[Rfam]
RNA sequence: UUGCGGCAACGAUAGAAGUGGAAAUCCUUUUUGCCUGCUUUGAGGCAAAAAGAUUGGAACGAAUAGCGUGUGUGCCG
Numbered sequence: 001u002u003g004c005g006g007c008a009a010c011g012a013u014a015g016a017a018g019u020g021g022a023a024a025u026c027c028u029u030u031u032u033g034c035c036u037g038c039u040u041u042g043a044g045g046c047a048a049a050a051a052g053a054u055u056g057g058a059a060c061g062a063a064u065a066g067c068g069u070g071u072g073u074g075c076c077g
Base pairs, nucleotide, nucleotide: 009069010068011067013065014064018060019059023055024054025053026052029050030049031048032047033046034045035044036043
RNA: Flavo-1 RNA